Shown here is an 87-nucleotide RNA sequence from Vulpes vulpes, a member of the family "mir-8799 microRNA precursor family".
The family is grouped with related families in Rfam's "mir-8791 microRNA precursor clan".

[Rfam]
RNA sequence: GGGGUGGCCGGAUCCUGGGCUGUGUCCCAGCGCCCUCUGCUCUGGGGCCUGCUCUGUUGCAUUCGCUCUCCAGCCACGCAGCCCCCU
Numbered sequence: 001g002g003g004g005u006g007g008c009c010g011g012a013u014c015c016u017g018g019g020c021u022g023u024g025u026c027c028c029a030g031c032g033c034c035c036u037c038u039g040c041u042c043u044g045g046g047g048c049c050u051g052c053u054c055u056g057u058u059g060c061a062u063u064c065g066c067u068c069u070c071c072a073g074c075c076a077c078g079c080a081g082c083c084c085c086c087u
Stems, first nucleotide, its partner, number of pairs: 001085004007079002010075002014073001017071003022066003025061001027059001028056003032052002039048003
Rfam links the family to the GO terms RISC complex and miRNA-mediated post-transcriptional gene silencing.